[Rfam]
RNA sequence: ACCGCGUACUUACCUACUGUAUGGUAGGCGAGAUAGAUGUAUUUCAGCUACUGUAUAGUAGGUAAGUACGCGGUUU
Numbered sequence: 001a002c003c004g005c006g007u008a009c010u011u012a013c014c015u016a017c018u019g020u021a022u023g024g025u026a027g028g029c030g031a032g033a034u035a036g037a038u039g040u041a042u043u044u045c046a047g048c049u050a051c052u053g054u055a056u057a058g059u060a061g062g063u064a065a066g067u068a069c070g071c072g073g074u075u076u
Stems, first nucleotide, its partner, number of pairs: 001074015017058011030045002033042003

Rfam assigns this 76-nucleotide RNA from Ameiurus melas to the family "mir-7563 microRNA precursor family".
The source organism's lineage runs through Eukaryota, Gnathostomata, Otophysi, Siluriformes and Ameiurus.